[Rfam]
RNA sequence: UCCUCGCUCGAAGAAUCGCAAUCAAAGCUUACACACAGAGCGCCUCCCUGCCUUCACGGGCAUAGGUAUCUCGAUCCUCAUGCUUUGGGAGAAAGUCCCCGGACAACGGUGCUCACCCACCGCCCUCGCGUCAACAGCGCCGCCAUAGAAGCACAGCGGCCUCUUUUCCAUCCAUCUCUGCCACAACACCCUUACAUCGCACCCGUCCGCACUCUCCCUGCACCCUUCCAAGCCGCACUGAGCAACCGGAUCUGGCACCCGGACGAAGAUAUGAGUCCGUCGGGUCACGAGCUCUGCUGCGAGGAGGACGUUGGUCGUGGGGUGGAGGAGGGAGCUUUGUGCAGCGGCGUGGUUGCUCUUCUCGGAGGGCAGGGUGGGAAAGAGGGUCAUUUCGUCAUGCUGGAUAGUUAUGCGAUUGCCUUUCCCGUCCUUCCCUUCACUGGGUUGGUUCGAGGGAGGUAACUCGAUGGGGCUUAUUUUCGAUGCGAGG
Dot-bracket structure: .((((((((((..((((((..(((((((.........(((...(.....................)...))).........)))))).)...[[[.[[[[......(((((......)))))........................................................................................................................................................(((..(((((....((((....((((................................................))))..))))..)))))..))).........................................)))))).((((((.............................)))))).........]]]]]]]....)))).))))))
Numbered sequence: 001u002c003c004u005c006g007c008u009c010g011a012a013g014a015a016u017c018g019c020a021a022u023c024a025a026a027g028c029u030u031a032c033a034c035a036c037a038g039a040g041c042g043c044c045u046c047c048c049u050g051c052c053u054u055c056a057c058g059g060g061c062a063u064a065g066g067u068a069u070c071u072c073g074a075u076c077c078u079c080a081u082g083c084u085u086u087g088g089g090a091g092a093a094a095g096u097c098c099c100c101g102g103a104c105a106a107c108g109g110u111g112c113u114c115a116c117c118c119a120c121c122g123c124c125c126u127c128g129c130g131u132c133a134a135c136a137g138c139g140c141c142g143c144c145a146u147a148g149a150a151g152c153a154c155a156g157c158g159g160c161c162u163c164u165u166u167u168c169c170a171u172c173c174a175u176c177u178c179u180g181c182c183a184c185a186a187c188a189c190c191c192u193u194a195c196a197u198c199g200c201a202c203c204c205g206u207c208c209g210c211a212c213u214c215u216c217c218c219u220g221c222a223c224c225c226u227u228c229c230a231a232g233c234c235g236c237a238c239u240g241a242g243c244a245a246c247c248g249g250a251u252c253u254g255g256c257a258c259c260c261g262g263a264c265g266a267a268g269a270u271a272u273g274a275g276u277c278c279g280u281c282g283g284g285u286c287a288c289g290a291g292c293u294c295u296g297c298u299g300c301g302a303g304g305a306g307g308a309c310g311u312u313g314g315u316c317g318u319g320g321g322g323u324g325g326a327g328g329a330g331g332g333a334g335c336u337u338u339g340u341g342c343a344g345c346g347g348c349g350u351g352g353u354u355g356c357u358c359u360u361c362u363c364g365g366a367g368g369g370c371a372g373g374g375u376g377g378g379a380a381a382g383a384g385g386g387u388c389a390u391u392u393c394g395u396c397a398u399g400c401u402g403g404a405u406a407g408u409u410a411u412g413c414g415a416u417u418g419c420c421u422u423u424c425c426c427g428u429c430c431u432u433c434c435c436u437u438c439a440c441u442g443g444g445u446u447g448g449u450u451c452g453a454g455g456g457a458g459g460u461a462a463c464u465c466g467a468u469g470g471g472g473c474u475u476a477u478u479u480u481c482g483a484u485g486c487g488a489g490g
Stems, first nucleotide, its partner, number of pairs: 002490006008483004014417006022089001023087006038072003044066001093475003097472004107122005275370003280365005289358004297352004419459006